[Rfam]
The family of this 166-nucleotide sequence from Geobacter sp. DSM 9736 is "Group II catalytic intron D1-D4-3". Group II introns are found in rRNA, tRNA and mRNA of organelles in fungi, plants and protists, and also in mRNA in bacteria. A reference for the family is Bonen and Vogel (2001), "The ins and outs of group II introns", Trends Genet. Taxonomically the source falls in Geobacter (Bacteria, Thermodesulfobacteriota, Geobacterales, Geobacteraceae).
RNA sequence: GUCUCCGCGAGGAGGGGUCUGGAGGAAGCCGGAGCGCAAAGCUAUGAGCCGACGAACAGAAACAGCAUACAAGGCCGUCAUCCGGGCAAGUCAGCACAACAUGACGAAGUCCCGCGGAUUCAGGAGAAACGGUAAAUGCUGCGGUUGUGUAGCGACAGUUCACGUU
Numbered sequence: 001g002u003c004u005c006c007g008c009g010a011g012g013a014g015g016g017g018u019c020u021g022g023a024g025g026a027a028g029c030c031g032g033a034g035c036g037c038a039a040a041g042c043u044a045u046g047a048g049c050c051g052a053c054g055a056a057c058a059g060a061a062a063c064a065g066c067a068u069a070c071a072a073g074g075c076c077g078u079c080a081u082c083c084g085g086g087c088a089a090g091u092c093a094g095c096a097c098a099a100c101a102u103g104a105c106g107a108a109g110u111c112c113c114g115c116g117g118a119u120u121c122a123g124g125a126g127a128a129a130c131g132g133u134a135a136a137u138g139c140u141g142c143g144g145u146u147g148u149g150u151a152g153c154g155a156c157a158g159u160u161c162a163c164g165u166u
Stems, first nucleotide, its partner, number of pairs: 002015005028166001030164002036159002041153006047146005063141006074133003078128001081125003084112004090105004

The base pairs follow the family's consensus structure. Rfam 15.1 lists 4,274 matches to the family in 1,585 species.